[Rfam]
RNA sequence: GUUAAAAGCAUUGCACCCAGGGUCUGGACUCCCAGACAUUGUACCUGGAGCUUUUAUAUUUUAAUUAAACAGUUUC
Numbered sequence: 001g002u003u004a005a006a007a008g009c010a011u012u013g014c015a016c017c018c019a020g021g022g023u024c025u026g027g028a029c030u031c032c033c034a035g036a037c038a039u040u041g042u043a044c045c046u047g048g049a050g051c052u053u054u055u056a057u058a059u060u061u062u063a064a065u066u067a068a069a070c071a072g073u074u075u076c
Stems, first nucleotide, its partner, number of pairs: 005054005017048004022037005

This 76-nucleotide sequence from Chanos chanos belongs to the Rfam family "U1A polyadenylation inhibition element (PIE)".
Rfam 15.1 lists 510 matches to the family in 331 species.
The organism belongs to Chanos, within Eukaryota.
The base pairs follow the family's consensus structure, which is taken from published work.
Rfam links the family to the GO term regulation of mRNA polyadenylation.